[Rfam]
RNA sequence: UAGCCGAAUAAUAAGUUAUUCUAUGGUCACUUUAAGUUACGAUAAUUAUUAUACUAAUUUACGAGAUUAUGGUAACAAUCUCAUAAGUGAUUUACUAUAGCAUUAUGAUAACUAUCAUCUUGAAUUAUAGUAAUCAAUGUAUCGUAAAUGUGUAUUGUCAUUAUCGUAAAUUGGUACAAACAUUAUCGUAAAUCAAGGUGGCCAUAGAAUAAGUUAUUCUGUGCCAG
Number, nucleotide and partner (000 for none) at each position: 001u227002a000003g225004c000005c223006g222007a000008a220009u000010a218011a217012u216013a215014a214015g000016u212017u211018a210019u209020u208021c207022u206023a205024u204025g203026g202027u201028c200029a199030c198031u197032u196033u195034a000035a000036g000037u191038u190039a189040c188041g187042a186043u185044a184045a183046u182047u000048a000049u000050u178051a000052u176053a175054c174055u173056a172057a171058u170059u169060u168061a167062c166063g000064a000065g165066a164067u163068u000069a161070u160071g159072g000073u000074a155075a000076c000077a000078a000079u148080c000081u146082c000083a000084u000085a000086a000087g142088u141089g140090a000091u000092u137093u132094a131095c130096u129097a128098u127099a126100g125101c000102a000103u122104u000105a000106u000107g000108a000109u000110a000111a000112c000113u000114a000115u000116c000117a000118u000119c000120u000121u000122g103123a000124a000125u100126u099127a098128u097129a096130g095131u094132a093133a000134u000135c000136a000137a092138u000139g000140u089141a088142u087143c000144g000145u000146a081147a000148a079149u000150g000151u000152g000153u000154a000155u074156u000157g000158u000159c071160a070161u069162u000163a067164u066165c065166g062167u061168a060169a059170a058171u057172u056173g055174g054175u053176a052177c000178a050179a000180a000181c000182a046183u045184u044185a043186u042187c041188g040189u039190a038191a037192a000193u000194c000195a033196a032197g031198g030199u029200g028201g027202c026203c025204a024205u023206a022207g021208a020209a019210u018211a017212a016213g000214u014215u013216a012217u011218u010219c000220u008221g000222u006223g005224c000225c003226a000227g001

The record is a 227-nucleotide RNA from Miscanthus lutarioriparius, which matches "MIR6217 microRNA precursor family" in Rfam. Its family is annotated with miRNA-mediated post-transcriptional gene silencing and RISC complex in the Gene Ontology. The base pairs follow the family's consensus structure, which was predicted with RNAalifold. Taxonomically the source falls in Miscanthus (Eukaryota, Viridiplantae, Streptophytina, Embryophyta).